Shown here is a 162-nucleotide sequence, a member of the family "FuFi-1 RNA".

[Rfam]
RNA sequence: GUUGUUGACAUAUAGGCUAUUAGUGCAGAACCAAUACUGCCAAAGCAAUAACAUUUCUGAUAGAAACAUAUUGUGUGUUGAUAUGUGGUGAAAACCUGCAAGAAAUAUUGGGUAAACAAAUUUGGGCAAUAGCUGGAUAGAAACACACUCUAUUCAGUUUUU
Number, nucleotide and partner (000 for none) at each position: 001g052002u051003u050004g049005u048006u047007g046008a000009c000010a000011u000012a000013u000014a000015g000016g000017c000018u000019a000020u000021u000022a000023g000024u000025g040026c039027a038028g037029a000030a000031c126032c125033a000034a123035u000036a000037c028038u027039g026040c025041c000042a000043a000044a000045g000046c007047a006048a005049u004050a003051a002052c001053a106054u105055u104056u103057c102058u101059g000060a000061u000062a000063g000064a000065a000066a086067c085068a084069u083070a082071u081072u080073g000074u147075g146076u145077g144078u143079u000080g072081a071082u070083a069084u068085g067086u066087g096088g095089u094090g000091a000092a000093a000094a089095c088096c087097u000098g000099c000100a000101a058102g057103a056104a055105a054106u053107a000108u000109u000110g000111g000112g000113u000114a000115a000116a000117c000118a000119a000120a000121u000122u000123u034124g000125g032126g031127c000128a000129a000130u000131a159132g158133c157134u156135g155136g154137a153138u152139a151140g150141a149142a000143a078144c077145a076146c075147a074148c000149u141150c140151u139152a138153u137154u136155c135156a134157g133158u132159u131160u000161u000162u000
Rfam classes the family as a small RNA.